[Rfam]
Bacterial large subunit ribosomal RNA: a 600-nucleotide part of an RNA from Dictyoglomus thermophilum.

RNA sequence: UAGAAAGGGCGUACGGUGGAUGCCUAGGCACCAAGGGCCGAAGAAGGACGCGGCAGGCGGCGAAACGCCCCGGGGAGCUGCGAGCAAGCUAUGAUCCGGGGGUGUCCGAAUGGGGAAACCCACUCCGGGUAAUGCCGGAGUAUCCCUAAGGGGAAACUCUUAGGGAGGGGAACCAGGGGAACUGAAACAUCUUAGUACCCUGAGGAAAAGAAAGAGAAAUUCGAUUCCCUGAGUAGUGGUGAGCGAAAGGGGAGGAGCCUAAACCUGUGUGGUGUAGAAGCUCGCGGGCGUUGCCACACAGGGGUAGAGGGAUAAGGUCGGGGAAAGCCGCGACUUUCCCGUAGGCGAGGUACACAUAGCCGAAUGGUCUGGGAAGGCCAGCCAGAGAGGGUGAGAGCCCCGUAGGCGAAAUGUGUACUAAGCCUAUGGACCUUACUCCCGAGUAGCGUGGGACACGGGGAAUCCUGCGCGAAUCUGGGCGGACCACCGCCUAAGGCUAAAUACCCUUGGUGACCGAUAGCGCAUAGUACCGUGAGGGAAAGGUGAAAAGAACCCCGGAGAGGGGAGUGAAAUAGAACCUGAAACCGUACGUCCACAAGG
Numbered sequence: 001u002a003g004a005a006a007g008g009g010c011g012u013a014c015g016g017u018g019g020a021u022g023c024c025u026a027g028g029c030a031c032c033a034a035g036g037g038c039c040g041a042a043g044a045a046g047g048a049c050g051c052g053g054c055a056g057g058c059g060g061c062g063a064a065a066c067g068c069c070c071c072g073g074g075g076a077g078c079u080g081c082g083a084g085c086a087a088g089c090u091a092u093g094a095u096c097c098g099g100g101g102g103u104g105u106c107c108g109a110a111u112g113g114g115g116a117a118a119c120c121c122a123c124u125c126c127g128g129g130u131a132a133u134g135c136c137g138g139a140g141u142a143u144c145c146c147u148a149a150g151g152g153g154a155a156a157c158u159c160u161u162a163g164g165g166a167g168g169g170g171a172a173c174c175a176g177g178g179g180a181a182c183u184g185a186a187a188c189a190u191c192u193u194a195g196u197a198c199c200c201u202g203a204g205g206a207a208a209a210g211a212a213a214g215a216g217a218a219a220u221u222c223g224a225u226u227c228c229c230u231g232a233g234u235a236g237u238g239g240u241g242a243g244c245g246a247a248a249g250g251g252g253a254g255g256a257g258c259c260u261a262a263a264c265c266u267g268u269g270u271g272g273u274g275u276a277g278a279a280g281c282u283c284g285c286g287g288g289c290g291u292u293g294c295c296a297c298a299c300a301g302g303g304g305u306a307g308a309g310g311g312a313u314a315a316g317g318u319c320g321g322g323g324a325a326a327g328c329c330g331c332g333a334c335u336u337u338c339c340c341g342u343a344g345g346c347g348a349g350g351u352a353c354a355c356a357u358a359g360c361c362g363a364a365u366g367g368u369c370u371g372g373g374a375a376g377g378c379c380a381g382c383c384a385g386a387g388a389g390g391g392u393g394a395g396a397g398c399c400c401c402g403u404a405g406g407c408g409a410a411a412u413g414u415g416u417a418c419u420a421a422g423c424c425u426a427u428g429g430a431c432c433u434u435a436c437u438c439c440c441g442a443g444u445a446g447c448g449u450g451g452g453a454c455a456c457g458g459g460g461a462a463u464c465c466u467g468c469g470c471g472a473a474u475c476u477g478g479g480c481g482g483a484c485c486a487c488c489g490c491c492u493a494a495g496g497c498u499a500a501a502u503a504c505c506c507u508u509g510g511u512g513a514c515c516g517a518u519a520g521c522g523c524a525u526a527g528u529a530c531c532g533u534g535a536g537g538g539a540a541a542g543g544u545g546a547a548a549a550g551a552a553c554c555c556c557g558g559a560g561a562g563g564g565g566a567g568u569g570a571a572a573u574a575g576a577a578c579c580u581g582a583a584a585c586c587g588u589a590c591g592u593c594c595a596c597a598a599g600g
Base pairs, nucleotide, nucleotide: 007594008593009592010591011590012589013588014587015586016585022579023543024542027515028514029512030511031510032509033508034507035506036505037504038169039168046107047106048105049062050061051060068101069100070099071098072097073096074095077089078088079087112121113120114119122141123140124139125138126137127136128135143166144165145164146163147162148161149160150159151158173204174202175201176200177199178198184191185190214222215221225501226253227252228251229250230249236244237243256498257497258496259495264302265301266300267299268298269297270296271295272294273293274292309440310439311438314434315433316432317431318430345423346422349419350418351417352416353415354414355413356412357411359407360406361405365380366379367378368377369376383387389401390400391399446470447469448468449467450466451465452464453463477492478491479490480489481488530537531536553565554564555563556562
Dot-bracket structure: ......((((((((((.....(((..(((((((((((((......((((((........))).....(((((((..(((.......))).....)))))))...)))....(((....)))(((((((......))))))).(((((((((......))))))))).))...((((((.....((....))......))))).).........((.....))..((((((.....((.....))....)))))..((((....(((((((((((.................)))))))))))......(((..(((((..........................((..(((((((((.(((...(((((......)))))..(...).(((.......)))...)))...)))))))))..))......)))))...))).....((((((((.........))))))))......(((((......)))))..))))..)..))))))))).))..............((....))....)).........((((.....)))).............).....))))))))))......
The source organism's lineage runs through Bacteria, Pseudomonadati, Dictyoglomia, Dictyoglomus and Dictyoglomus thermophilum.